Background:
This 119-nucleotide RNA from Syntrophomonas wolfei belongs to the Rfam family "Molybdenum/Tungsten riboswitch aptamer (Moco RNA motif)". The match comes from Rfam's covariance-model search (68 bits).
RNA sequence: GAAUAUCAAGUUCUCCGAGCUUUUAGAUCUAAGGUUUACUAUGGUUUAAAAGCCUGUGGGUAUAUGCGGAAACGGAUAUGCCUUCCCGUAUUGUGAAAAGGAGAUGCUCAGCAGGCAGG
Numbered sequence: 001g002a003a004u005a006u007c008a009a010g011u012u013c014u015c016c017g018a019g020c021u022u023u024u025a026g027a028u029c030u031a032a033g034g035u036u037u038a039c040u041a042u043g044g045u046u047u048a049a050a051a052g053c054c055u056g057u058g059g060g061u062a063u064a065u066g067c068g069g070a071a072a073c074g075g076a077u078a079u080g081c082c083u084u085c086c087c088g089u090a091u092u093g094u095g096a097a098a099a100g101g102a103g104a105u106g107c108u109c110a111g112c113a114g115g116c117a118g119g
Base pairs, nucleotide, nucleotide: 006110012104013103014102015101016100019053020052021051022050023049024048025047026046027045028044029043033040034039058083059082060081061080062079063078064077065076067074068073084096085095